Selenocysteine insertion sequence 1: a 63-nucleotide sequence from Pantherophis guttatus. Lineage of the source: Eukaryota > Squamata > Unidentata > Colubrinae > Pantherophis. Rfam 15.1 lists 3,793 matches to the family in 721 species. A search with the family's covariance model found it, with a score of 36 bits. Gene Ontology term of the family: selenocysteine incorporation.

RNA sequence: CUGUGUUCAUGAUAUGAUUAGAUUAAAGCCCGUGGGAUGUCUAAUAGCUGAUGGUUGCCACUG
Numbered sequence: 001c002u003g004u005g006u007u008c009a010u011g012a013u014a015u016g017a018u019u020a021g022a023u024u025a026a027a028g029c030c031c032g033u034g035g036g037a038u039g040u041c042u043a044a045u046a047g048c049u050g051a052u053g054g055u056u057g058c059c060a061c062u063g
Base pairs, nucleotide, nucleotide: 001063003061004060005059015047017045018044019043020042021041022040023039029036030035

Rfam classes the family as a cis-regulatory element. About the family: The incorporation of selenocysteine into a protein sequence is directed by an in-frame UGA codon (usually a stop codon) within the coding region of the mRNA. Selenoprotein mRNAs contain a conserved secondary structure in the 3' UTR that is required for the distinction of UGA stop from UGA selenocysteine. On this family, see Walczak et al., RNA 1996: "A novel RNA structural motif in the selenocysteine insertion element of eukaryotic selenoprotein mRNAs".